[Rfam]
RNA sequence: AGCCUCAAGUGAUGGAGCAAUGACUGGGGAGCUCUGUGACCGAAUUGGGAUGUGUUCGUACUGUCUGAUGGGGCC
Number, nucleotide and partner (000 for none) at each position: 001a000002g074003c073004c072005u071006c070007a069008a000009g000010u000011g065012a064013u063014g062015g061016a000017g059018c058019a056020a055021u054022g053023a000024c049025u048026g000027g046028g045029g000030a000031g000032c000033u000034c000035u000036g000037u000038g000039a000040c000041c000042g000043a000044a000045u028046u027047g000048g025049g024050a000051u000052g000053u022054g021055u020056u019057c000058g018059u017060a000061c015062u014063g013064u012065c011066u000067g000068a000069u007070g006071g005072g004073g003074c002075c000
The record is a 75-nucleotide RNA from Hipposideros armiger, which matches "Small nucleolar RNA ZL2" in Rfam. Taxonomically the source falls in Hipposideros (Eukaryota, Bilateria, Tetrapoda, Laurasiatheria). The literature on the family includes a 2013 paper in Genome Biol by Kishore et al., "Insights into snoRNA biogenesis and processing from PAR-CLIP of snoRNA core proteins and small RNA sequencing".